[Rfam]
RNA: tRNA
RNA sequence: GGGCCUAUAGCUCAGUUGGUUAGAGCAGCAGACUCAUAAUCUGCGGGUCGAAGGUUCGAGACCUUCUGGGCCCA
Numbered sequence: 001g002g003g004c005c006u007a008u009a010g011c012u013c014a015g016u017u018g019g020u021u022a023g024a025g026c027a028g029c030a031g032a033c034u035c036a037u038a039a040u041c042u043g044c045g046g047g048u049c050g051a052a053g054g055u056u057c058g059a060g061a062c063c064u065u066c067u068g069g070g071c072c073c074a
Stems, first nucleotide, its partner, number of pairs: 001073007010026004028044005050066005